Group I catalytic intron: a 300-nucleotide RNA from Rosellinia necatrix.
[Rfam]
RNA sequence: CCAAGAGGGUCAUCAGAGGGCCGUCGUGAGACGCGCCCUAGUAGCGAGUCGCCUCGCUACAACACUGUCAAAUUACGGGGAGUUCCUAAAGCUUCGACUACCGCGGCCCAUUGAAAAAUCGGGUGCAGCACUAGGUGUAACGGCCUAGGGAUGGUAAUAACGUCGAGGAUGGUACAAUGGAUAAUCCGUAGCCAAGUCCGCAUUGCAGGAUGCAGUUCAACGAUUAAAUGGCAGUGGGUUGGGCCCCCCUACACCGGGCCCGGCUUAAGAUAUAAUCUACUCCGCACGUGAAAACGUCCC
Number, nucleotide and partner (000 for none) at each position: 001c000002c000003a000004a000005g025006a024007g000008g022009g021010u020011c019012a000013u017014c000015a000016g000017a013018g000019g011020g010021c009022c008023g000024u006025c005026g000027u000028g000029a039030g038031a000032c000033g000034c000035g000036c000037c000038c030039u029040a000041g000042u000043a000044g000045c000046g000047a000048g000049u000050c000051g000052c000053c000054u000055c000056g000057c000058u000059a000060c000061a000062a000063c236064a235065c234066u233067g232068u000069c230070a229071a000072a000073u000074u190075a189076c188077g187078g186079g185080g000081a000082g000083u000084u181085c180086c179087u000088a000089a000090a000091g000092c000093u000094u000095c000096g000097a000098c000099u000100a000101c000102c000103g000104c000105g000106g000107c000108c000109c000110a000111u000112u000113g000114a000115a000116a000117a000118a000119u000120c000121g000122g000123g000124u000125g000126c000127a000128g000129c000130a000131c000132u000133a000134g000135g000136u000137g000138u000139a000140a000141c000142g000143g000144c000145c000146u000147a000148g000149g000150g000151a000152u000153g000154g000155u000156a000157a000158u000159a000160a000161c000162g000163u000164c000165g000166a000167g000168g000169a000170u000171g000172g000173u000174a000175c000176a000177a000178u000179g086180g085181a084182u000183a000184a000185u079186c078187c077188g076189u075190a074191g216192c215193c000194a000195a000196g211197u210198c209199c208200g000201c000202a000203u000204u000205g000206c000207a000208g199209g198210a197211u196212g000213c000214a000215g192216u191217u000218c000219a000220a278221c000222g277223a276224u275225u274226a273227a000228a000229u070230g069231g000232c067233a066234g065235u064236g063237g000238g264239u263240u262241g261242g260243g259244c258245c257246c256247c000248c000249c000250u000251a000252c000253a000254c000255c000256g246257g245258g244259c243260c242261c241262g240263g239264c238265u000266u000267a000268a000269g000270a000271u000272a000273u226274a225275a224276u223277c222278u220279a000280c000281u000282c000283c000284g000285c000286a297287c296288g295289u294290g000291a000292a000293a000294a289295c288296g287297u286298c000299c000300c000

The match comes from Rfam's covariance-model search (83 bits). A reference for the family is Cate et al. (1996), "Crystal structure of a group I ribozyme domain: principles of RNA packing", Science. The base pairs follow the family's consensus structure, which is taken from published work.